[Rfam]
RNA sequence: AUAUCUUAAGACUUCCUAAAGCAUUUUUUGCAAAGCUGAAUAAAAUUAGUGAGAACUCAGUCAUUACAAAGGCUGAACUAAUGAUAU
Dot-bracket structure: (((..................((((..(((..........)))....)))).................................)))
The record is an 87-nucleotide RNA from Toxostoma redivivum, which matches "Small nucleolar RNA SNORD116" in Rfam. Lineage of the source: Eukaryota > Gnathostomata > Theropoda > Neoaves > Toxostoma. Rfam classes the family as a C/D-box small nucleolar RNA. A reference for the family is Cavaille et al. (2000), "Identification of brain-specific and imprinted small nucleolar RNA genes exhibiting an unusual genomic organization", Proc Natl Acad Sci U S A. Gene Ontology terms of the family: RNA processing and nucleolus.